[Rfam]
RNA sequence: CUAAAUCUAAAUAAAAUAAGGAUUAAUAAAUUAAAAACUCUUUCUUAAUUUUUCAGGUGGUAGUAUAUGGCUGUUCUUAGUUAAUAAAAUAAUUUAUCUACUUAAUUAUAAUAAUAAAUAAAACCUUAAUUUACUAAAUAGUCUGACUAGUUUUAGCUAGUUACUAGUUUCUUAAAGAGACUAUUAGCUUAAGCUAAUAAAAGUUUAAGAUAAUAAUAAGUUUAUAAUACUUUUAGAUAUUUUAGGCU
Numbered sequence: 001c002u003a004a005a006u007c008u009a010a011a012u013a014a015a016a017u018a019a020g021g022a023u024u025a026a027u028a029a030a031u032u033a034a035a036a037a038c039u040c041u042u043u044c045u046u047a048a049u050u051u052u053u054c055a056g057g058u059g060g061u062a063g064u065a066u067a068u069g070g071c072u073g074u075u076c077u078u079a080g081u082u083a084a085u086a087a088a089a090u091a092a093u094u095u096a097u098c099u100a101c102u103u104a105a106u107u108a109u110a111a112u113a114a115u116a117a118a119u120a121a122a123a124c125c126u127u128a129a130u131u132u133a134c135u136a137a138a139u140a141g142u143c144u145g146a147c148u149a150g151u152u153u154u155a156g157c158u159a160g161u162u163a164c165u166a167g168u169u170u171c172u173u174a175a176a177g178a179g180a181c182u183a184u185u186a187g188c189u190u191a192a193g194c195u196a197a198u199a200a201a202a203g204u205u206u207a208a209g210a211u212a213a214u215a216a217u218a219a220g221u222u223u224a225u226a227a228u229a230c231u232u233u234u235a236g237a238u239a240u241u242u243u244a245g246g247c248u
Base pairs, nucleotide, nucleotide: 001245002244003243004242005241012055014053015052016051026043028041030039059233060232062231063230064229065228068227069225070221071220072219073217074216075215080119081118082117084115085114086095087094088093099110100109125209126208127207128206130178131177132176135174136173137172140169141168142167182199183198184197185196186195187194188193
Rfam assigns this 248-nucleotide part of an RNA from Zopfia rhizophila to the family "Eukaryotic small subunit ribosomal RNA". On this family, see Yusupov et al., Science 2001: "Crystal structure of the ribosome at 5.5 A resolution". Taxonomically the source falls in Zopfia rhizophila (Eukaryota, Fungi, Zopfiaceae, Zopfia). Clan: SSU clan. It scores 387 bits against the family's covariance model. Pairs were carried over by alignment from the consensus structure, which is taken from published work. The family has 90 seed sequences and 75,755 matches in Rfam 15.1. Rfam links the family to the GO terms ribosome and structural constituent of ribosome.